[Rfam]
RNA sequence: GAAGUGAGCCAGACGGUCGCUGCUAUGAAGGUCUUCGUGACUGAAGUAGGAGAGGAAAGUCCGGGCUUCAAAGGGUAAGGUGCCAGAUAACGUCUGGGCGGCGUGAGCCGACGGCUAGUGCAGCAGAGAGUAGACCGCCUCCCAUUUUUGUGGGCGGUAAGGGUGAAAGGGUGCGGUAAGAGCGCACCGCAUGUCUGGUAACAGUUCAUGGCUUGGUAAACCCCACCUGAAGCAAGACCAAAUAGGGAUCCUGAGGCGUGACCCGCGCUGGAUCCGGGUAGGUUGCUUGAGCAUGUGAGUAAUUGCAUGCCUAGAGGAAUGAUCGUCUUCGACAGAACCCGGCUUAUCGGCUCACUUCACAG
Numbered sequence: 001g002a003a004g005u006g007a008g009c010c011a012g013a014c015g016g017u018c019g020c021u022g023c024u025a026u027g028a029a030g031g032u033c034u035u036c037g038u039g040a041c042u043g044a045a046g047u048a049g050g051a052g053a054g055g056a057a058a059g060u061c062c063g064g065g066c067u068u069c070a071a072a073g074g075g076u077a078a079g080g081u082g083c084c085a086g087a088u089a090a091c092g093u094c095u096g097g098g099c100g101g102c103g104u105g106a107g108c109c110g111a112c113g114g115c116u117a118g119u120g121c122a123g124c125a126g127a128g129a130g131u132a133g134a135c136c137g138c139c140u141c142c143c144a145u146u147u148u149u150g151u152g153g154g155c156g157g158u159a160a161g162g163g164u165g166a167a168a169g170g171g172u173g174c175g176g177u178a179a180g181a182g183c184g185c186a187c188c189g190c191a192u193g194u195c196u197g198g199u200a201a202c203a204g205u206u207c208a209u210g211g212c213u214u215g216g217u218a219a220a221c222c223c224c225a226c227c228u229g230a231a232g233c234a235a236g237a238c239c240a241a242a243u244a245g246g247g248a249u250c251c252u253g254a255g256g257c258g259u260g261a262c263c264c265g266c267g268c269u270g271g272a273u274c275c276g277g278g279u280a281g282g283u284u285g286c287u288u289g290a291g292c293a294u295g296u297g298a299g300u301a302a303u304u305g306c307a308u309g310c311c312u313a314g315a316g317g318a319a320u321g322a323u324c325g326u327c328u329u330c331g332a333c334a335g336a337a338c339c340c341g342g343c344u345u346a347u348c349g350g351c352u353c354a355c356u357u358c359a360c361a362g
Stems, first nucleotide, its partner, number of pairs: 001358010011347001012327007020052002023049004057345003061342005066232004073264004078228005083097005098112001099110004113223002118221002120217002135162002137158003141154005170188006189212001190210004195204003236284004246275006255269005291310008
RNA: Bacterial RNase P class A